[Rfam]
ZMP/ZTP riboswitch aptamer (pfl RNA motif): an 80-nucleotide RNA sequence from Microbacterium protaetiae.

RNA sequence: CCCUGUAAUCGCGACUGGCGUGGCCGGAUUCACCGGCAGGGAGCGCAGCAAGACCGGCAUCGCCCGCCUGGGUGCCCAUC
Numbered sequence: 001c002c003c004u005g006u007a008a009u010c011g012c013g014a015c016u017g018g019c020g021u022g023g024c025c026g027g028a029u030u031c032a033c034c035g036g037c038a039g040g041g042a043g044c045g046c047a048g049c050a051a052g053a054c055c056g057g058c059a060u061c062g063c064c065c066g067c068c069u070g071g072g073u074g075c076c077c078a079u080c
Base pairs, nucleotide, nucleotide: 003048004047005046010045011044012043015040016039017068018067019066020065024036025035026034027033057075058074059073060072061071

Lineage of the source: Bacteria > Bacillati > Micrococcales > Microbacteriaceae > Microbacterium.